[Rfam]
Rfam assigns this 200-nucleotide RNA sequence from Hibiscus syriacus to the family "MIR159 microRNA precursor family". A search with the family's covariance model found it, with a score of 89 bits. On this family, see Jones-Rhoades and Bartel, Mol Cell 2004: "Computational identification of plant microRNAs and their targets, including a stress-induced miRNA". Its family is annotated with miRNA-mediated post-transcriptional gene silencing and RISC complex in the Gene Ontology. The organism belongs to Hibiscus, within Eukaryota.

RNA sequence: UGAGAGCAGAGGGAGCUCCCUUCAGUCCAAGCACAGGAAGAUUAGGAUUAAAUUUGUCUCCCGCAUCAUUCACUCAUUUACUGGGUGACCUUCGGCCGGCCGGCCUUUUCAAACUCAGUAUUUGGAUGAAUGAGUCGGCAGCUAAUUAAAUCCCAUCCCCACCCAUGAGUGGACUGAAGAAAGCUCUCUCUCUCACCCAU
Numbered sequence: 001u002g003a004g005a006g007c008a009g010a011g012g013g014a015g016c017u018c019c020c021u022u023c024a025g026u027c028c029a030a031g032c033a034c035a036g037g038a039a040g041a042u043u044a045g046g047a048u049u050a051a052a053u054u055u056g057u058c059u060c061c062c063g064c065a066u067c068a069u070u071c072a073c074u075c076a077u078u079u080a081c082u083g084g085g086u087g088a089c090c091u092u093c094g095g096c097c098g099g100c101c102g103g104c105c106u107u108u109u110c111a112a113a114c115u116c117a118g119u120a121u122u123u124g125g126a127u128g129a130a131u132g133a134g135u136c137g138g139c140a141g142c143u144a145a146u147u148a149a150a151u152c153c154c155a156u157c158c159c160c161a162c163c164c165a166u167g168a169g170u171g172g173a174c175u176g177a178a179g180a181a182a183g184c185u186c187u188c189u190c191u192c193u194c195a196c197c198c199a200u
Base pairs, nucleotide, nucleotide: 013186014185015184016183017182020179023176024175025174026173027172028171029170036163058141059140061138062137063136067132068131069130070129075124
Dot-bracket structure: ............(((((..(..(((((((......(.....................((.(((...((((....(................................................)....))))...))).)).....................)......)))))))..)..)))))..............